RNA sequence: UUUCGUUCUCAGGGCGGGGUGUAAUUCCCCACCGGCGGUAAUGACGUUCUAGUCUAGCCCGCGAGCGCCUACAUAAAGUAGGGACAGCAGACUCGGUGUGAUUCCGAGGCCGACGGUCAUAGUCCGGAUGAGAGAGGGCGGGA
Numbered sequence: 001u002u003u004c005g006u007u008c009u010c011a012g013g014g015c016g017g018g019g020u021g022u023a024a025u026u027c028c029c030c031a032c033c034g035g036c037g038g039u040a041a042u043g044a045c046g047u048u049c050u051a052g053u054c055u056a057g058c059c060c061g062c063g064a065g066c067g068c069c070u071a072c073a074u075a076a077a078g079u080a081g082g083g084a085c086a087g088c089a090g091a092c093u094c095g096g097u098g099u100g101a102u103u104c105c106g107a108g109g110c111c112g113a114c115g116g117u118c119a120u121a122g123u124c125c126g127g128a129u130g131a132g133a134g135a136g137g138g139c140g141g142g143a
Base pairs, nucleotide, nucleotide: 003141004140005139006138007137008136009135010134017029018028019027031123032122033112034111035062036061037060038059057110058109065088066087092108093107094106095105096104114126115125116124
This 143-nucleotide RNA from Azomonas agilis belongs to the Rfam family "FMN riboswitch aptamer (RFN element)". Rfam links the family to the GO term FMN binding. NCBI's taxonomy places the organism under Bacteria, Pseudomonadati, Gammaproteobacteria, Pseudomonadaceae, Azomonas.